[Rfam]
RNA: Guanidine-I riboswitch aptamer
Organism: Polaromonas naphthalenivorans
RNA sequence: ACAAAUGACAGCUAGGGUUCCGGCCACUUGUUCGCAAGCGGUGUCUGGUCCGAGAGCAGUCGGCCAGCAGCGGCCCACACCACUGCAGGUUCCACGGCGGGACAAAAGCCCGGGAGGU
Numbered sequence: 001a002c003a004a005a006u007g008a009c010a011g012c013u014a015g016g017g018u019u020c021c022g023g024c025c026a027c028u029u030g031u032u033c034g035c036a037a038g039c040g041g042u043g044u045c046u047g048g049u050c051c052g053a054g055a056g057c058a059g060u061c062g063g064c065c066a067g068c069a070g071c072g073g074c075c076c077a078c079a080c081c082a083c084u085g086c087a088g089g090u091u092c093c094a095c096g097g098c099g100g101g102a103c104a105a106a107a108g109c110c111c112g113g114g115a116g117g118u
Stems, first nucleotide, its partner, number of pairs: 007061003011057002015051002020048002022045001023042003027038002062091004067086003093113001095116001099111003